[Rfam]
RNA sequence: UACAGACAUGAGCGACUGUGCCUGACCAAAAGUCAACAUUAAACAACAAAUCUUGGCCAGGCACAGUGGCUCAUGCCUGUA
Numbered sequence: 001u002a003c004a005g006a007c008a009u010g011a012g013c014g015a016c017u018g019u020g021c022c023u024g025a026c027c028a029a030a031a032g033u034c035a036a037c038a039u040u041a042a043a044c045a046a047c048a049a050a051u052c053u054u055g056g057c058c059a060g061g062c063a064c065a066g067u068g069g070c071u072c073a074u075g076c077c078u079g080u081a
Base pairs, nucleotide, nucleotide: 001081002080003079004078005077007075008074009073010072012070013069015067016066021061022060023059024058026056027055028054031051